[Rfam]
RNA sequence: AUGUCCUGCUCGUGAUCGUCUUCUCACCCGACGCGUGCAGGCAGCACAAGGAAGGGCUCCUGCGAGACCGCUCGCAGGAGCCCUUC
Numbered sequence: 001a002u003g004u005c006c007u008g009c010u011c012g013u014g015a016u017c018g019u020c021u022u023c024u025c026a027c028c029c030g031a032c033g034c035g036u037g038c039a040g041g042c043a044g045c046a047c048a049a050g051g052a053a054g055g056g057c058u059c060c061u062g063c064g065a066g067a068c069c070g071c072u073c074g075c076a077g078g079a080g081c082c083c084u085u086c
Stems, first nucleotide, its partner, number of pairs: 002043002005041005011035004018028001051086016